[Rfam]
RNA sequence: GGUCACCGUCGGAUUACUCGGCAUUAGGCGACAUUUUAUUUAUGAAAGGUGGAUAUUCCAAUGGCAAUUUCUGCAGAAAAGAAAACAGAAAUCAUGAAGGAGUUCGCACGUCACGAA
Numbered sequence: 001g002g003u004c005a006c007c008g009u010c011g012g013a014u015u016a017c018u019c020g021g022c023a024u025u026a027g028g029c030g031a032c033a034u035u036u037u038a039u040u041u042a043u044g045a046a047a048g049g050u051g052g053a054u055a056u057u058c059c060a061a062u063g064g065c066a067a068u069u070u071c072u073g074c075a076g077a078a079a080a081g082a083a084a085a086c087a088g089a090a091a092u093c094a095u096g097a098a099g100g101a102g103u104u105c106g107c108a109c110g111u112c113a114c115g116a117a
Base pairs, nucleotide, nucleotide: 008022009021010020011019012018044071045070046069050066051065
RNA: Ribosomal S15 leader